The family of this 58-nucleotide RNA from Caenorhabditis elegans is "mir-1829 microRNA precursor family".
Its family is annotated with RISC complex and miRNA-mediated post-transcriptional gene silencing in the Gene Ontology.
RNA sequence: AAGAGCGCUUGUAGUGAGUUGUCAAAAAUUGAGUAUGACAACCACUGCAAUUUCUCUA
Numbered sequence: 001a002a003g004a005g006c007g008c009u010u011g012u013a014g015u016g017a018g019u020u021g022u023c024a025a026a027a028a029u030u031g032a033g034u035a036u037g038a039c040a041a042c043c044a045c046u047g048c049a050a051u052u053u054c055u056c057u058a
Stems, first nucleotide, its partner, number of pairs: 002057004007052001009050006018042007026034001

Rfam's curators put it in the seed alignment.
The literature on the family includes a 2008 paper in Nat Biotechnol by Friedlander et al., "Discovering microRNAs from deep sequencing data using miRDeep".
The base pairs follow the family's consensus structure, which was predicted with RNAalifold.